[Rfam]
The record is a 50-nucleotide sequence, which matches "chrB-b RNA" in Rfam. It is annotated as a cis-regulatory element.
RNA sequence: CGGGGAUGUCGCAGCCUUCCCGUGAAGUGGUGAUCCCACGCAAGCGCUGC
Numbered sequence: 001c002g003g004g005g006a007u008g009u010c011g012c013a014g015c016c017u018u019c020c021c022g023u024g025a026a027g028u029g030g031u032g033a034u035c036c037c038a039c040g041c042a043a044g045c046g047c048u049g050c
Stems, first nucleotide, its partner, number of pairs: 001022006011050005027039004